[Rfam]
RNA: nhaA-I RNA
RNA sequence: GGGUGCACGCUCCAUUCCGGAGUGGGGCAGGAUGCGCGAUGGUCGGGCCGCCACG
Dot-bracket structure: ....((.((((.........))))..))........((.((((......))))))